[Rfam]
RNA sequence: UCCAGCAGUAGUCAGCCAUCCGGACAGAACCGUUCCUGUGAUGGUGUUACACUGCUGGGAGAGGAAUGUCUUGUCUUCAUCCGGUUGCCUGCGCCACUGUUCUGGUGGCGUCUGGCACUGGUGCAAGACAGAGCUGUGCUUCCCCGAGAGUGUGCUAAGCAUUCACUUUGGCUGCUUAGUUCUAGUCUGGGAGCAGACAGA
Numbered sequence: 001u002c003c004a005g006c007a008g009u010a011g012u013c014a015g016c017c018a019u020c021c022g023g024a025c026a027g028a029a030c031c032g033u034u035c036c037u038g039u040g041a042u043g044g045u046g047u048u049a050c051a052c053u054g055c056u057g058g059g060a061g062a063g064g065a066a067u068g069u070c071u072u073g074u075c076u077u078c079a080u081c082c083g084g085u086u087g088c089c090u091g092c093g094c095c096a097c098u099g100u101u102c103u104g105g106u107g108g109c110g111u112c113u114g115g116c117a118c119u120g121g122u123g124c125a126a127g128a129c130a131g132a133g134c135u136g137u138g139c140u141u142c143c144c145c146g147a148g149a150g151u152g153u154g155c156u157a158a159g160c161a162u163u164c165a166c167u168u169u170g171g172c173u174g175c176u177u178a179g180u181u182c183u184a185g186u187c188u189g190g191g192a193g194c195a196g197a198c199a200g201a
Base pairs, nucleotide, nucleotide: 001059002058003057004056005055006054007053008052009051011050012049015045016044017043018042019041020040021038022036023035024034068134069133071131072130073129074128075127076126082123083122085120086117087116088115089114091112092110093109094108095107096106097105098104137195138194139193140192141191142190143189152182154180156178157177158176159175160174161173
Small nucleolar RNA SNORA74: a 201-nucleotide RNA. Rfam classes the family as an H/ACA-box small nucleolar RNA. For this family Rfam cites "Characterization of the intron-encoded U19 RNA, a new mammalian small nucleolar RNA that is not associated with fibrillarin" (Kiss et al., Mol Cell Biol, 1996). Gene Ontology terms of the family: RNA processing and nucleolus. U19 belongs to the H/ACA class of snoRNAs. snoRNAs bind a number of proteins (including dyskerin, Gar1p and Nop10p in the case of the H/ACA class) to form snoRNP complexes. This class are thought to guide the sites of modification of uridines to pseudouridines by forming direct base pairing interactions with substrate RNAs. Targets may include ribosomal and spliceosomal RNAs but the exact functions of many snoRNAs, including U19, are not confirmed.